Group II catalytic intron D1-D4-6: a 234-nucleotide RNA from Clostridium tagluense. The base pairs follow the family's consensus structure. Rfam 15.1 lists 1,617 matches to the family in 661 species. Rfam links the family to the GO term Group II intron splicing. It scores 132 bits against the family's covariance model.
[Rfam]
RNA sequence: GAAAUCCUACUAGGUAAGGUCUAACCAACUACCUAUACCUAGUCCUUGGAGUCGAAAUGGUAACAUUAGAUUUAAGCGUAGGGCGGGGAGCAAACGAGCCGAAACGAAAGUGAAGCUGUUGAGCCACGAAAUGAUUAUCUAAAUGAAGAGGUCGAUACUGUUUUAUAAGUAGCAGGCAAUAUUAUAUAAAUCGUAAUGGUGAGAUUUGUAUAACUCUUCCGGGGUCCUAGGGCU
Numbered sequence: 001g002a003a004a005u006c007c008u009a010c011u012a013g014g015u016a017a018g019g020u021c022u023a024a025c026c027a028a029c030u031a032c033c034u035a036u037a038c039c040u041a042g043u044c045c046u047u048g049g050a051g052u053c054g055a056a057a058u059g060g061u062a063a064c065a066u067u068a069g070a071u072u073u074a075a076g077c078g079u080a081g082g083g084c085g086g087g088g089a090g091c092a093a094a095c096g097a098g099c100c101g102a103a104a105c106g107a108a109a110g111u112g113a114a115g116c117u118g119u120u121g122a123g124c125c126a127c128g129a130a131a132u133g134a135u136u137a138u139c140u141a142a143a144u145g146a147a148g149a150g151g152u153c154g155a156u157a158c159u160g161u162u163u164u165a166u167a168a169g170u171a172g173c174a175g176g177c178a179a180u181a182u183u184a185u186a187u188a189a190a191u192c193g194u195a196a197u198g199g200u201g202a203g204a205u206u207u208g209u210a211u212a213a214c215u216c217u218u219c220c221g222g223g224g225u226c227c228u229a230g231g232g233c234u
Stems, first nucleotide, its partner, number of pairs: 011035004018030003022202001024200002038087002042084001044082003047078002049073005055067001057066003121226001123225003127221002145219006151177003156171004182213011